Shown here is a 99-nucleotide RNA from Kroppenstedtia pulmonis, a member of the family "pan motif".
RNA sequence: GAGGCAGUAUCCAAGGGAACUGCACGAAUCCUGUUACUGGCAGUUUAUGGAUAACGAACAUUUAUUCUGCUCUGAGCCCACGGGGACGGAGACAGAGGU
Number, nucleotide and partner (000 for none) at each position: 001g000002a000003g025004g023005c022006a021007g020008u019009a000010u018011c017012c000013a000014a000015g000016g000017g011018a010019a008020c007021u006022g005023c004024a000025c003026g000027a000028a000029u000030c000031c000032u000033g000034u000035u000036a000037c000038u000039g000040g000041c000042a000043g000044u000045u000046u000047a000048u000049g000050g000051a000052u000053a000054a000055c000056g000057a000058a000059c000060a000061u000062u000063u000064a000065u000066u000067c095068u094069g093070c091071u090072c089073u088074g087075a000076g000077c085078c084079c000080a000081c000082g000083g000084g078085g077086a000087c074088g073089g072090a071091g070092a000093c069094a068095g067096a000097g000098g000099u000
It scores 41 bits against the family's covariance model.
The organism belongs to Kroppenstedtia, within Bacteria.